The family of this 63-nucleotide RNA sequence from Saimiri boliviensis is "U7 small nuclear RNA". Animal histone pre-mRNAs are spliced by a different mechanism than nuclear pre-mRNAs and self-splicing introns.

RNA sequence: UAGUGUUACAGCUCUUUAAGAAAUUGUCUAGCAGGUCGUCUGGUUGUCACUGGAAAUGCCCUC
Number, nucleotide and partner (000 for none) at each position: 001u000002a000003g000004u000005g000006u000007u000008a000009c000010a000011g000012c000013u000014c000015u000016u000017u000018a000019a000020g000021a000022a000023a000024u000025u000026g000027u000028c000029u000030a000031g000032c000033a000034g060035g059036u058037c000038g000039u054040c053041u052042g051043g050044u049045u000046g000047u000048c000049a044050c043051u042052g041053g040054a039055a000056a000057u000058g036059c035060c034061c000062u000063c000